[Rfam]
RNA sequence: GGCCACCUACGGGGGGCUAUCACAUAGCCCCGGAUCAUGUCCGGGGCACUGCUAAACGGAAGACAGAAA
Numbered sequence: 001g002g003c004c005a006c007c008u009a010c011g012g013g014g015g016g017c018u019a020u021c022a023c024a025u026a027g028c029c030c031c032g033g034a035u036c037a038u039g040u041c042c043g044g045g046g047c048a049c050u051g052c053u054a055a056a057c058g059g060a061a062g063a064c065a066g067a068a069a
Stems, first nucleotide, its partner, number of pairs: 001018004006014003027047009
L2-Alphaproteobacteria ribosomal protein leader: a 69-nucleotide RNA sequence. A reference for the family is Eckert and Weinberg (2020), "Discovery of 20 novel ribosomal leader candidates in bacteria and archaea", BMC Microbiol.